[Rfam]
RNA sequence: GAGCUAUGGAGUGUGACAAUGGUGUUUGUGUCAGAGCUAUCAAACGCCAUUAUCACACUAAUGAGCUAC
Numbered sequence: 001g002a003g004c005u006a007u008g009g010a011g012u013g014u015g016a017c018a019a020u021g022g023u024g025u026u027u028g029u030g031u032c033a034g035a036g037c038u039a040u041c042a043a044a045c046g047c048c049a050u051u052a053u054c055a056c057a058c059u060a061a062u063g064a065g066c067u068a069c
Stems, first nucleotide, its partner, number of pairs: 010059007018051011